[Rfam]
The record is a 103-nucleotide RNA from Ipomoea nil, which matches "Small nucleolar RNA Z103" in Rfam. The family's RNA type in Rfam is C/D-box small nucleolar RNA.
RNA sequence: AUGGGCGUGAUGAGUAUUUCCCCAGAUGAUCGAAGCUGAAAUUACUGAGCGCUAUUUGUGUUUUCUCCUACGGAGAAAUUCCAAGCCAGAUAUUCUGAUCCAU
Number, nucleotide and partner (000 for none) at each position: 001a103002u102003g101004g100005g099006c000007g000008u000009g000010a000011u000012g000013a000014g000015u000016a000017u000018u000019u000020c000021c000022c000023c000024a000025g000026a000027u000028g000029a000030u000031c000032g000033a000034a000035g000036c000037u000038g000039a000040a000041a000042u000043u000044a000045c000046u000047g000048a000049g000050c000051g000052c000053u000054a000055u000056u000057u000058g000059u000060g000061u000062u000063u000064u000065c000066u000067c000068c000069u000070a000071c000072g000073g000074a000075g000076a000077a000078a000079u000080u000081c000082c000083a000084a000085g000086c000087c000088a000089g000090a000091u000092a000093u000094u000095c000096u000097g000098a000099u005100c004101c003102a002103u001